[Rfam]
RNA sequence: AGCCGUGUGAUGAUCACAUAGCAAACUAUUCUUUUGCCUUUUGUUAAAGAAAUACUGUGUGAACGUCACAAUUAGCGGCAUACGCUAGUUUUUGGAAAUAUUAGUUCAAAUUUU
Numbered sequence: 001a002g003c004c005g006u007g008u009g010a011u012g013a014u015c016a017c018a019u020a021g022c023a024a025a026c027u028a029u030u031c032u033u034u035u036g037c038c039u040u041u042u043g044u045u046a047a048a049g050a051a052a053u054a055c056u057g058u059g060u061g062a063a064c065g066u067c068a069c070a071a072u073u074a075g076c077g078g079c080a081u082a083c084g085c086u087a088g089u090u091u092u093u094g095g096a097a098a099u100a101u102u103a104g105u106u107c108a109a110a111u112u113u114u
Stems, first nucleotide, its partner, number of pairs: 003078004008068005014062005027054003030050005096114001098113001100111003
Dot-bracket structure: ..((((.(((((.(((((........((((((((...........))))).)))...))))).)))))......)))).................(.(.(((......))).))
Rfam assigns this 114-nucleotide RNA from Trifolium medium to the family "U5 spliceosomal RNA". The organism belongs to Trifolium, within Eukaryota. U5 RNA is a component of both types of known spliceosome. It scores 66 bits against the family's covariance model. The base pairs follow the family's consensus structure, which is taken from published work.